[Rfam]
RNA: Small nucleolar RNA SNORA74
Organism: Rhipidura dahli
RNA sequence: CCCAGCAGUAGUCAGCUGCCCCUGGCUGCUCGGUGCCUCUGUCAGUGUUACGCUGCUGGGAGAGAAAGGUGCUGCCGAGUCCUCCUGGCACCAGCGAGGCCGUCCUGGCGCUCGGUGCUGCCAGGUUUUGGCAGCGCUCUGCAUGCCCGAGAGUGGAGUAACUCCUGCCCGUGGAGUUAGAGCCUAGAUUGGAUGCAGACAAA
Number, nucleotide and partner (000 for none) at each position: 001c060002c059003c058004a057005g056006c055007a054008g053009u052010a000011g051012u050013c000014a000015g046016c045017u044018g043019c000020c041021c000022c000023u000024g037025g036026c035027u000028g000029c000030u000031c000032g000033g000034u000035g026036c025037c024038u000039c000040u000041g020042u000043c018044a017045g016046u015047g000048u000049u000050a012051c011052g009053c008054u007055g006056c005057u004058g003059g002060g001061a000062g000063a000064g000065a000066a000067a000068g000069g137070u136071g135072c134073u133074g132075c131076c130077g129078a000079g000080u000081c000082c000083u000084c125085c124086u123087g000088g119089c000090a000091c000092c115093a000094g113095c000096g111097a000098g000099g109100c108101c107102g000103u000104c000105c000106u000107g101108g100109c099110g000111c096112u000113c094114g000115g092116u000117g000118c000119u088120g000121c000122c000123a086124g085125g084126u000127u000128u000129u077130g076131g075132c074133a073134g072135c071136g070137c069138u000139c198140u197141g196142c195143a194144u193145g000146c191147c000148c000149g000150a000151g000152a000153g000154u000155g184156g183157a000158g000159u179160a178161a177162c176163u175164c174165c173166u000167g000168c000169c000170c000171g000172u000173g165174g164175a163176g162177u161178u160179a159180g000181a000182g000183c156184c155185u000186a000187g000188a000189u000190u000191g146192g000193a144194u143195g142196c141197a140198g139199a000200c000201a000202a000203a000